[Rfam]
RNA sequence: CUGUUAAUGCUAAUUGUGAUAGGUGUUUUAUUCUGAUCAACUCCUACAUGUUAGCAUUAGUAG
Numbered sequence: 001c002u003g004u005u006a007a008u009g010c011u012a013a014u015u016g017u018g019a020u021a022g023g024u025g026u027u028u029u030a031u032u033c034u035g036a037u038c039a040a041c042u043c044c045u046a047c048a049u050g051u052u053a054g055c056a057u058u059a060g061u062a063g
Base pairs, nucleotide, nucleotide: 004060005059006058007057008056009055010054011053012052013051014050020046021045022044023043025041026040027039